[Rfam]
RNA: Group II catalytic intron D1-D4-1
Organism: Glutamicibacter sp. BW77
RNA sequence: CGGUUUUGGCCGUGAGGUCAGGGCUGAUGGGGCAGAAGUCAGCAGAGGUCAUAGUACCCACCGGAAUAGUGUCUUGGAUCUGAUGAGGAUGCCAGGAUUGCCUUUAUAUAAGGGGUGGGGAAGGGC
Dot-bracket structure: ((.((((((((....)))))))).))............((....)).(((......((((((...................................................))))))....)))
Numbered sequence: 001c002g003g004u005u006u007u008g009g010c011c012g013u014g015a016g017g018u019c020a021g022g023g024c025u026g027a028u029g030g031g032g033c034a035g036a037a038g039u040c041a042g043c044a045g046a047g048g049u050c051a052u053a054g055u056a057c058c059c060a061c062c063g064g065a066a067u068a069g070u071g072u073c074u075u076g077g078a079u080c081u082g083a084u085g086a087g088g089a090u091g092c093c094a095g096g097a098u099u100g101c102c103u104u105u106a107u108a109u110a111a112g113g114g115g116u117g118g119g120g121a122a123g124g125g126c
Stems, first nucleotide, its partner, number of pairs: 001026002004023008039046002048126003057119006